[Rfam]
Notes: Rfam assigns this 154-nucleotide sequence from Nocardioides panaciterrulae to the family "c-di-AMP riboswitch aptamer (ydaO/yuaA leader)". NCBI's taxonomy places the organism under Bacteria, Bacillati, Actinomycetota, Actinomycetes, Nocardioides.

RNA sequence: ACCCUGUGGUCGCCGUCGACACACGGGCAGGAGUGGGGGAACCAGCGUUCCACGCGGUCCCCGACCGCUCGGGGUGAAGCCACCGACCCGUGGCCGGGCACCUUCCUCGCCCGAACCCGACAGCUCACCUCACAGGCGUGGGAAGGGAGAACCG
Number, nucleotide and partner (000 for none) at each position: 001a000002c000003c031004c030005u029006g028007u027008g000009g000010u000011c000012g000013c000014c000015g000016u000017c000018g000019a000020c000021a000022c000023a000024c000025g000026g000027g007028c006029a005030g004031g003032a000033g133034u132035g131036g130037g129038g128039g000040a000041a000042c000043c071044a000045g000046c000047g000048u000049u000050c000051c000052a000053c000054g000055c000056g000057g000058u000059c000060c000061c000062c000063g000064a000065c000066c000067g000068c000069u000070c000071g043072g118073g117074g116075u000076g000077a000078a000079g000080c093081c092082a091083c090084c000085g000086a000087c000088c000089c000090g083091u082092g081093g080094c000095c000096g112097g111098g110099c109100a000101c000102c000103u000104u000105c000106c000107u000108c000109g099110c098111c097112c096113g000114a000115a000116c074117c073118c072119g000120a000121c000122a000123g000124c000125u000126c000127a000128c038129c037130u036131c035132a034133c033134a000135g000136g000137c000138g000139u000140g000141g000142g000143a000144a000145g000146g000147g000148a000149g000150a000151a000152c000153c000154g000

The match comes from Rfam's covariance-model search (67 bits).